The family of this 150-nucleotide RNA from Necator americanus is "Nematode snoRNA ceN88". The source organism's lineage runs through Eukaryota, Opisthokonta, Nematoda, Strongyloidea and Necator. Its family is annotated with nucleolus and RNA processing in the Gene Ontology. It is annotated as an H/ACA-box small nucleolar RNA.

RNA sequence: GACCUUCUUUCUUGGCGCUCCUACCGAAUCUAGGGUAGAAGUGUAUGUAAUAGAAGGUAAAUCAUGCCCUAUUCUGGGUGUUCGGGUCUCCUUCGGUGCCGUUCUCGCUUGAAAUGUCGAACGGUGUCAUCCUCUGGGCUCGAGACAAUU
Numbered sequence: 001g002a003c004c005u006u007c008u009u010u011c012u013u014g015g016c017g018c019u020c021c022u023a024c025c026g027a028a029u030c031u032a033g034g035g036u037a038g039a040a041g042u043g044u045a046u047g048u049a050a051u052a053g054a055a056g057g058u059a060a061a062u063c064a065u066g067c068c069c070u071a072u073u074c075u076g077g078g079u080g081u082u083c084g085g086g087u088c089u090c091c092u093u094c095g096g097u098g099c100c101g102u103u104c105u106c107g108c109u110u111g112a113a114a115u116g117u118c119g120a121a122c123g124g125u126g127u128c129a130u131c132c133u134c135u136g137g138g139c140u141c142g143a144g145a146c147a148a149u150u
Stems, first nucleotide, its partner, number of pairs: 003057006010050001015044004021038004067078003081144009095128002099124006
Dot-bracket structure: ..((((((.(....((((..((((..........))))..)))).....).)))))).........(((......)))..(((((((((.....((..((((((..............))))))..)).......)))))))))......